[Rfam]
RNA sequence: UUGCAGUGAUGACCUGAGUCUGUCAAUCCCCUGAGUAUGAUCACUGAUGUCUCCAUGUCUCUGAGCAA
Numbered sequence: 001u002u003g004c005a006g007u008g009a010u011g012a013c014c015u016g017a018g019u020c021u022g023u024c025a026a027u028c029c030c031c032u033g034a035g036u037a038u039g040a041u042c043a044c045u046g047a048u049g050u051c052u053c054c055a056u057g058u059c060u061c062u063g064a065g066c067a068a
Stems, first nucleotide, its partner, number of pairs: 001068004

The family of this 68-nucleotide sequence from Phocoena sinus is "Small nucleolar RNA SNORD110". Clan: SNORD110 clan. The pairing is the family consensus, mapped onto this sequence.